[Rfam]
RNA: Bacteroidetes FopS (family of paralogous sRNAs)
RNA sequence: GUGUUUUUCAUAGUAUUAGAUUUAAGGUUAACAAAAGGUUGGGCUCAGCGGAGCCCUUUUUUUAUA
Numbered sequence: 001g002u003g004u005u006u007u008u009c010a011u012a013g014u015a016u017u018a019g020a021u022u023u024a025a026g027g028u029u030a031a032c033a034a035a036a037g038g039u040u041g042g043g044c045u046c047a048g049c050g051g052a053g054c055c056c057u058u059u060u061u062u063u064a065u066a
Stems, first nucleotide, its partner, number of pairs: 041056006